Background:
Lysine riboswitch aptamer: a 175-nucleotide sequence from Paraliobacillus quinghaiensis.
RNA sequence: CGAUGAGAUAGAGGCGCAACCUAAAAUCAGUAACCCAUUGGAGCUGACCAUGAAGAUAAUGGGUGAAAGGGUUAGGUUGCCGAAGUAAGUGUGCAAUGGUCGUUGCUAACUUAUUGGUAUAUUCUUGAAUAAAGAAUCUACUGUCAUGUCUUUUACGUGAUGAGCUGUUGAUCGA
Numbered sequence: 001c002g003a004u005g006a007g008a009u010a011g012a013g014g015c016g017c018a019a020c021c022u023a024a025a026a027u028c029a030g031u032a033a034c035c036c037a038u039u040g041g042a043g044c045u046g047a048c049c050a051u052g053a054a055g056a057u058a059a060u061g062g063g064u065g066a067a068a069g070g071g072u073u074a075g076g077u078u079g080c081c082g083a084a085g086u087a088a089g090u091g092u093g094c095a096a097u098g099g100u101c102g103u104u105g106c107u108a109a110c111u112u113a114u115u116g117g118u119a120u121a122u123u124c125u126u127g128a129a130u131a132a133a134g135a136a137u138c139u140a141c142u143g144u145c146a147u148g149u150c151u152u153u154u155a156c157g158u159g160a161u162g163a164g165c166u167g168u169u170g171a172u173c174g175a
Base pairs, nucleotide, nucleotide: 007169008168009167010166011165016080017079018078019077020076021075022074023073024072033064034063035062036061037060038059039058040057084115085114086113087112088111089110090109093106094105095104116142117141118140119139121137122136123135124134125133126132144160145159146158147157148156